RNA sequence: UAACGUCUUCAGGGCGGGGUGAGAUUCCCCACCGGCGGUAGGUCCCAGGCGCGUGAGUGCCGCAGACGAGCCCGCGAGCGCCGCCGGCAAACCGCUUCCACAGCGAGCGCCGGAGGGUCAGCAGAUCCGGUCCGAUGCCGGAGCCGACGGUCAUAGUCCGGAUGAAAGAAGACGGUC
Numbered sequence: 001u002a003a004c005g006u007c008u009u010c011a012g013g014g015c016g017g018g019g020u021g022a023g024a025u026u027c028c029c030c031a032c033c034g035g036c037g038g039u040a041g042g043u044c045c046c047a048g049g050c051g052c053g054u055g056a057g058u059g060c061c062g063c064a065g066a067c068g069a070g071c072c073c074g075c076g077a078g079c080g081c082c083g084c085c086g087g088c089a090a091a092c093c094g095c096u097u098c099c100a101c102a103g104c105g106a107g108c109g110c111c112g113g114a115g116g117g118u119c120a121g122c123a124g125a126u127c128c129g130g131u132c133c134g135a136u137g138c139c140g141g142a143g144c145c146g147a148c149g150g151u152c153a154u155a156g157u158c159c160g161g162a163u164g165a166a167a168g169a170a171g172a173c174g175g176u177c
Stems, first nucleotide, its partner, number of pairs: 004174007017029003031157002033146002035075004070144002078122002126142005148160003
This 177-nucleotide RNA sequence from Pseudoxanthomonas sp. CF125 belongs to the Rfam family "FMN riboswitch aptamer (RFN element)". Rfam's curators write: The RFN element is a highly conserved domain that is found frequently in the 5'-untranslated regions of prokaryotic mRNAs that encode for flavin mononucleotide (FMN) biosynthesis and transport proteins.